[Rfam]
Shown here is a 104-nucleotide RNA sequence from Cannabis sativa, a member of the family "Small nucleolar RNA Z103".
RNA sequence: UUGGAAGUGAUGAUUUUUUCCCCAGAUGAUCGAAGCUGAUUAUACUGAGCGCUAUUAUUUAGUUUAUCAUUCAUUUGAUAUUCCAAGCCAGAAUUCUGAUCCAC
Numbered sequence: 001u002u003g004g005a006a007g008u009g010a011u012g013a014u015u016u017u018u019u020c021c022c023c024a025g026a027u028g029a030u031c032g033a034a035g036c037u038g039a040u041u042a043u044a045c046u047g048a049g050c051g052c053u054a055u056u057a058u059u060u061a062g063u064u065u066a067u068c069a070u071u072c073a074u075u076u077g078a079u080a081u082u083c084c085a086a087g088c089c090a091g092a093a094u095u096c097u098g099a100u101c102c103a104c
Stems, first nucleotide, its partner, number of pairs: 002103004
Rfam 15.1 lists 2,844 matches to the family in 233 species.
Its family is annotated with nucleolus and RNA processing in the Gene Ontology.
A search with the family's covariance model found it, with a score of 84 bits.